[Rfam]
RNA sequence: CGGCGUCCCGAUCUCCCCCAGAUUCGGGAUGUCCGACGGGUCCUGCCGAUCCCCCAAGUGGCAGGACCCGUCCCCU
Numbered sequence: 001c002g003g004c005g006u007c008c009c010g011a012u013c014u015c016c017c018c019c020a021g022a023u024u025c026g027g028g029a030u031g032u033c034c035g036a037c038g039g040g041u042c043c044u045g046c047c048g049a050u051c052c053c054c055c056a057a058g059u060g061g062c063a064g065g066a067c068c069c070g071u072c073c074c075c076u
Base pairs, nucleotide, nucleotide: 002034003033004031005030006029007028008027009026010025011024035072036071037070038069039068040067041066042065043064044063045062046061047060